[Rfam]
RNA sequence: GAGGAAGGCCCCUCGACGGGGAUCGAGUCAGGCGAACCCGUCAAACAACCCUAAGCUGCUGCAAUUAAGAGUUGUGGUAGUGAGCGUCUAGGGAAAAGGUUGCCACAAGCAAUCAUG
Numbered sequence: 001g002a003g004g005a006a007g008g009c010c011c012c013u014c015g016a017c018g019g020g021g022a023u024c025g026a027g028u029c030a031g032g033c034g035a036a037c038c039c040g041u042c043a044a045a046c047a048a049c050c051c052u053a054a055g056c057u058g059c060u061g062c063a064a065u066u067a068a069g070a071g072u073u074g075u076g077g078u079a080g081u082g083a084g085c086g087u088c089u090a091g092g093g094a095a096a097a098g099g100u101u102g103c104c105a106c107a108a109g110c111a112a113u114c115a116u117g
Stems, first nucleotide, its partner, number of pairs: 001013001003011002015042006023035003046117002049093005054087001055081002058078003062074004098114006
Annotation:
The record is a 117-nucleotide RNA from Paenibacillus donghaensis, which matches "Group II catalytic intron D1-D4-2" in Rfam. The match comes from Rfam's covariance-model search (82 bits). Group II introns are found in rRNA, tRNA and mRNA of organelles in fungi, plants and protists, and also in mRNA in bacteria. Pairs were carried over by alignment from the consensus structure.